A member of the RNA family "ASpks TB sRNA" from Streptomyces rubellomurinus, 72 nucleotides long. NCBI's taxonomy places the organism under Bacteria, Actinomycetota, Actinomycetes, Kitasatosporales, Streptomyces. A search with the family's covariance model found it, with a score of 75 bits. The family's RNA type in Rfam is antisense RNA. For this family Rfam cites "Identification of small RNAs in Mycobacterium tuberculosis" (Arnvig and Young, Mol Microbiol, 2009).
[Rfam]
RNA sequence: CUUGAUCGAGCCGAGCCACAGCGGCCCGUUCUCGCGGUUCUGGCCGUAGGUGGCGAGCAGCGCCUCGGCCUC
Numbered sequence: 001c002u003u004g005a006u007c008g009a010g011c012c013g014a015g016c017c018a019c020a021g022c023g024g025c026c027c028g029u030u031c032u033c034g035c036g037g038u039u040c041u042g043g044c045c046g047u048a049g050g051u052g053g054c055g056a057g058c059a060g061c062g063c064c065u066c067g068g069c070c071u072c
Stems, first nucleotide, its partner, number of pairs: 015025003031068002035062002040057002044053003